Shown here is a 177-nucleotide RNA sequence from Saccharicrinis fermentans, a member of the family "Group II catalytic intron D1-D4-3". NCBI's taxonomy places the organism under Bacteria, Pseudomonadati, Bacteroidia, Marinilabiliaceae, Saccharicrinis fermentans. From the family's description: Group II introns are found in rRNA, tRNA and mRNA of organelles in fungi, plants and protists, and also in mRNA in bacteria. Pairs were carried over by alignment from the consensus structure.

[Rfam]
RNA sequence: CUUGGGGUGACCCAUGCAGUGAAGGAAGCCAAACGGCAAACUCUGGUACUGACGGACAGAAACCGUAUAUGAGGCUUUGUAAACCGGAUGAGCAAGCAUAUCAUUGUGACGUCCAAACACCAAGGAGGUGAGUGUUUAUAAAGUAGAUGCGGCAGGCAUUGGAGGAAGGAUACAGCA
Dot-bracket structure: (.((((....)))).).............(......(...((((((..(((...........((((((.....(((.(((((((.((((..((((........))))...))))...................))))))).)))..)))))))))...))))))....).....)..